[Rfam]
RNA sequence: UCGUUAUACUGCGCCGGUCAUUGGGGAGUAGCCUCCUUUAGGGUUUGCAUCAACAGACUUGACCCUCACGGUCAUGGUGCAAACAGUGAUUCGUCAUUAAAACGGAUACACCUGGCAAGACCUUUGACCAUACCCUGUGCGGCCGGACAGGUGUGUGGUCAAUGGAAGUUUUCCGGCCAUGGAGUAUC
Number, nucleotide and partner (000 for none) at each position: 001u000002c000003g000004u041005u040006a039007u000008a000009c000010u000011g000012c000013g000014c000015c000016g000017g000018u000019c000020a000021u000022u000023g000024g000025g000026g000027a000028g000029u000030a000031g000032c000033c000034u000035c000036c000037u000038u000039u006040a005041g004042g000043g084044u083045u082046u081047g080048c079049a078050u077051c076052a075053a000054c000055a000056g000057a000058c000059u000060u074061g073062a072063c071064c070065c000066u000067c000068a000069c000070g064071g063072u062073c061074a060075u052076g051077g050078u049079g048080c047081a046082a045083a044084c043085a000086g000087u000088g188089a187090u186091u000092c000093g000094u000095c000096a000097u000098u000099a000100a000101a000102a000103c000104g000105g000106a000107u000108a000109c000110a000111c000112c000113u000114g000115g000116c000117a000118a000119g000120a000121c000122c000123u000124u000125u000126g000127a000128c000129c000130a000131u000132a000133c000134c000135c000136u000137g000138u000139g000140c000141g000142g000143c000144c000145g000146g000147a000148c000149a000150g000151g000152u000153g000154u000155g000156u000157g000158g000159u000160c000161a000162a000163u000164g000165g000166a000167a000168g000169u000170u000171u000172u000173c000174c000175g000176g000177c000178c000179a000180u000181g000182g000183a000184g000185u000186a090187u089188c088
RNA: Manganese Mn2+ riboswitch aptamer (yybP-ykoY)